[Rfam]
RNA: Eukaryotic small subunit ribosomal RNA, nucleotides 33 to 615
Organism: Tritonia nilsodhneri
RNA sequence: UGUCUCAAAGACUAAGCCAUGCAUGUCUGAGUUCGCCCCAUACCGCACGGGCAGACCGCGGAAGGCUCAGUAAACCAGUCCGAGUUCCUUAGGUGACGGGCCCCUGACCGGGCCCGACGGAUAACUGUGGCAAAUCCAGAGCUAAUACGUGGUGUGACAGAGCCCCGACCCGCGACGGCUCGCGCGCACCCCUUAACCGGGGUGUGCCGCGGCGUCCGAGCGGGGAAGGGCGCCUUUAUUAGUACCGAGACCGGCUCGACCCCGUCGCUCUCUUAACCGGGAUGCCGGCGGGGGCGACCCACGGCCUGGUGAACUCUGGGUGACGGCCCGAACGCUACGUCCUCCGGGACGGCGGCGCUCCUUACAAGCGUCUGCCCUAUCAGAUGUCGACGGUGGCCAUGGGCCAACCGUGUCGCCGACGGGUAACGGGGAAUCGGGGUUCGAUUCCGGAGAGGGAGCACGAGAAACGGCUACCACAUCCAAGGAAGGCAGCAGGCGCGCAAAUUACCCACUCCCGGUCCGGGGAGGUAGUGACGAGAAGUAACGGUGGCGGGACCCGAGUCGGGCCCCGCGGUCGGAAUGA
Numbered sequence: 001u002g003u004c005u006c007a008a009a010g011a012c013u014a015a016g017c018c019a020u021g022c023a024u025g026u027c028u029g030a031g032u033u034c035g036c037c038c039c040a041u042a043c044c045g046c047a048c049g050g051g052c053a054g055a056c057c058g059c060g061g062a063a064g065g066c067u068c069a070g071u072a073a074a075c076c077a078g079u080c081c082g083a084g085u086u087c088c089u090u091a092g093g094u095g096a097c098g099g100g101c102c103c104c105u106g107a108c109c110g111g112g113c114c115c116g117a118c119g120g121a122u123a124a125c126u127g128u129g130g131c132a133a134a135u136c137c138a139g140a141g142c143u144a145a146u147a148c149g150u151g152g153u154g155u156g157a158c159a160g161a162g163c164c165c166c167g168a169c170c171c172g173c174g175a176c177g178g179c180u181c182g183c184g185c186g187c188a189c190c191c192c193u194u195a196a197c198c199g200g201g202g203u204g205u206g207c208c209g210c211g212g213c214g215u216c217c218g219a220g221c222g223g224g225g226a227a228g229g230g231c232g233c234c235u236u237u238a239u240u241a242g243u244a245c246c247g248a249g250a251c252c253g254g255c256u257c258g259a260c261c262c263c264g265u266c267g268c269u270c271u272c273u274u275a276a277c278c279g280g281g282a283u284g285c286c287g288g289c290g291g292g293g294g295c296g297a298c299c300c301a302c303g304g305c306c307u308g309g310u311g312a313a314c315u316c317u318g319g320g321u322g323a324c325g326g327c328c329c330g331a332a333c334g335c336u337a338c339g340u341c342c343u344c345c346g347g348g349a350c351g352g353c354g355g356c357g358c359u360c361c362u363u364a365c366a367a368g369c370g371u372c373u374g375c376c377c378u379a380u381c382a383g384a385u386g387u388c389g390a391c392g393g394u395g396g397c398c399a400u401g402g403g404c405c406a407a408c409c410g411u412g413u414c415g416c417c418g419a420c421g422g423g424u425a426a427c428g429g430g431g432a433a434u435c436g437g438g439g440u441u442c443g444a445u446u447c448c449g450g451a452g453a454g455g456g457a458g459c460a461c462g463a464g465a466a467a468c469g470g471c472u473a474c475c476a477c478a479u480c481c482a483a484g485g486a487a488g489g490c491a492g493c494a495g496g497c498g499c500g501c502a503a504a505u506u507a508c509c510c511a512c513u514c515c516c517g518g519u520c521c522g523g524g525g526a527g528g529u530a531g532u533g534a535c536g537a538g539a540a541g542u543a544a545c546g547g548u549g550g551c552g553g554g555a556c557c558c559g560a561g562u563c564g565g566g567c568c569c570c571g572c573g574g575u576c577g578g579a580a581u582g583a
Base pairs, nucleotide, nucleotide: 003539004538005537006536009532010499016497017496018495020494021493022492025059026058031056032055037051038050066452067451068450076374077373078372085367086366091362092361093360117150118149119148125141126140128138129137130136162231163230164229165228169224170223171222172221173220236322239319240318241317250310251309252308253307291300292299293298333354334353335352338351339350340349341348376423377422378421383414384413385412390411391410392409393408394407395405396404427449428448429447430446431442432441433440434439454475455474457472458471459470477488479486480485505530507529508528509527513525514524515523516522517521545577546576547575548573549572551571552570553569554568556566557565558564